[Rfam]
The record is a 586-nucleotide part of an RNA from Doto pinnatifida, which matches "Eukaryotic small subunit ribosomal RNA" in Rfam. The base pairs follow the family's consensus structure, which is taken from published work. The family is grouped with related families in Rfam's "SSU clan". It is one of the family's seed sequences.

RNA sequence: UGUCUCAAAGAUUAAGCCAUGCAUGUCUGAGUUCGCCCCCAGCAAGGGUAAACCGCGAAUGGCUCAGUACUACGGUCCUGGUUCCUUAGGCGAGACGGCCCCACCCCGCGAGGGGAAAGGGCAGAUUCGGAUAACUGUGGCAAAUCCAGAGCUAAUACGUGCGUUCGAGCCCCUUUCCUGUCGUCCCCUCCUUUCGGGGGGUGGCGGCGGGAGGGGCGCUUUUAUUAGCAGCUAGACCGGCGUCGCCCCUGCCCUUCACGGGGUAGGGCUUCCUCCGUUCAGGCGAACUCUGGAUAACGAGCAGACCGCUACGUCCUCAUGGACGGCGGCGCGCCUUUCAAGCGUCCGCCCUAUCAAAUGUCGACGGUCGGUUACACGCCGACCGUGUUGGCCACGGGUGACGGGGAAUCGGGGUUCGAUUCCGGAGAGGGAGCACGAGAAACGGCUACCACAUCCAAGGAAGGCAGCAGGCGCGCAACUUACCCACUCCCGGCACGGGGAGGUAGUGACGAGAAAUAACGAGCGGGCCCUUAGUGGGGAUACGUUUCGGGAUGAGCGCAGUCCAAAUACCUGAUGCGACGACCAA
Numbered sequence: 001u002g003u004c005u006c007a008a009a010g011a012u013u014a015a016g017c018c019a020u021g022c023a024u025g026u027c028u029g030a031g032u033u034c035g036c037c038c039c040c041a042g043c044a045a046g047g048g049u050a051a052a053c054c055g056c057g058a059a060u061g062g063c064u065c066a067g068u069a070c071u072a073c074g075g076u077c078c079u080g081g082u083u084c085c086u087u088a089g090g091c092g093a094g095a096c097g098g099c100c101c102c103a104c105c106c107c108g109c110g111a112g113g114g115g116a117a118a119g120g121g122c123a124g125a126u127u128c129g130g131a132u133a134a135c136u137g138u139g140g141c142a143a144a145u146c147c148a149g150a151g152c153u154a155a156u157a158c159g160u161g162c163g164u165u166c167g168a169g170c171c172c173c174u175u176u177c178c179u180g181u182c183g184u185c186c187c188c189u190c191c192u193u194u195c196g197g198g199g200g201g202u203g204g205c206g207g208c209g210g211g212a213g214g215g216g217c218g219c220u221u222u223u224a225u226u227a228g229c230a231g232c233u234a235g236a237c238c239g240g241c242g243u244c245g246c247c248c249c250u251g252c253c254c255u256u257c258a259c260g261g262g263g264u265a266g267g268g269c270u271u272c273c274u275c276c277g278u279u280c281a282g283g284c285g286a287a288c289u290c291u292g293g294a295u296a297a298c299g300a301g302c303a304g305a306c307c308g309c310u311a312c313g314u315c316c317u318c319a320u321g322g323a324c325g326g327c328g329g330c331g332c333g334c335c336u337u338u339c340a341a342g343c344g345u346c347c348g349c350c351c352u353a354u355c356a357a358a359u360g361u362c363g364a365c366g367g368u369c370g371g372u373u374a375c376a377c378g379c380c381g382a383c384c385g386u387g388u389u390g391g392c393c394a395c396g397g398g399u400g401a402c403g404g405g406g407a408a409u410c411g412g413g414g415u416u417c418g419a420u421u422c423c424g425g426a427g428a429g430g431g432a433g434c435a436c437g438a439g440a441a442a443c444g445g446c447u448a449c450c451a452c453a454u455c456c457a458a459g460g461a462a463g464g465c466a467g468c469a470g471g472c473g474c475g476c477a478a479c480u481u482a483c484c485c486a487c488u489c490c491c492g493g494c495a496c497g498g499g500g501a502g503g504u505a506g507u508g509a510c511g512a513g514a515a516a517u518a519a520c521g522a523g524c525g526g527g528c529c530c531u532u533a534g535u536g537g538g539g540a541u542a543c544g545u546u547u548c549g550g551g552a553u554g555a556g557c558g559c560a561g562u563c564c565a566a567a568u569a570c571c572u573g574a575u576g577c578g579a580c581g582a583c584c585a586a
Base pairs, nucleotide, nucleotide: 003514004513005512006511009507010474016472017471018470020469021468022467025056026055031053032052037048038047063427064426065425073348074347075346079342082341083340088336089335090334091333126161128159129158135151136150138148139147140146169217170216171215172214173213176210177209222296225293226292227291237283238282266275267274268273306329307328308327309326312325313324314323315322350398351397352396357389358388359387364386365385366384367383368382369381370380371379402424403423404422405421406417407416408415409414429450430449432447433446434445452463454461455460480505482504483503484502488500489499490498491497492496520549521548522547523545524544525543527541529539530538531537532536556577557576560572561571